[Rfam]
RNA sequence: AUGAUCCACGUGGGAGAGGCCGCAGUCCUUAGGGAUGGGCGGACGCCGAAGGAGCAACCACCCCGGAAACUCUCAGGCAAAAGGACCGCGUGGAGAUG
Dot-bracket structure: .....((((((((......((((...............))))..(((((..(((...((.....))...))))).))).......)))))))).....
RNA: Glycine riboswitch aptamer
Organism: Thalassospira sp. HJ